[Rfam]
RNA sequence: CAAGUCCGGCGCGGGUAAGCCGUGGCGGGCGCCCGGUAGCGAGUGUUGCGUGGUCGCCGGCGACGGCGAUUGCGAAGCUUACACAGCGAUCGUGUGGGGUGGGUUAUUGAGCCGCGAAAGGCACAAUGUCGCAGAGGCCGAGGCCGUUGACAGAGCCGAAGGCAAAAUGUGCGGGGCCGCCAUGCGAGGCCCUGACGCUCUGCCGUGGUCGAAGACCC
Numbered sequence: 001c002a003a004g005u006c007c008g009g010c011g012c013g014g015g016u017a018a019g020c021c022g023u024g025g026c027g028g029g030c031g032c033c034c035g036g037u038a039g040c041g042a043g044u045g046u047u048g049c050g051u052g053g054u055c056g057c058c059g060g061c062g063a064c065g066g067c068g069a070u071u072g073c074g075a076a077g078c079u080u081a082c083a084c085a086g087c088g089a090u091c092g093u094g095u096g097g098g099g100u101g102g103g104u105u106a107u108u109g110a111g112c113c114g115c116g117a118a119a120g121g122c123a124c125a126a127u128g129u130c131g132c133a134g135a136g137g138c139c140g141a142g143g144c145c146g147u148u149g150a151c152a153g154a155g156c157c158g159a160a161g162g163c164a165a166a167a168u169g170u171g172c173g174g175g176g177c178c179g180c181c182a183u184g185c186g187a188g189g190c191c192c193u194g195a196c197g198c199u200c201u202g203c204c205g206u207g208g209u210c211g212a213a214g215a216c217c218c
Stems, first nucleotide, its partner, number of pairs: 012035004019030003023187001025185002037089001039087002043084004048078001049074011108212001109210001111209006131203006137163003142157003168197002172194007

This 218-nucleotide RNA from Rhizobiales bacterium GAS113 belongs to the Rfam family "Group II catalytic intron D1-D4-6".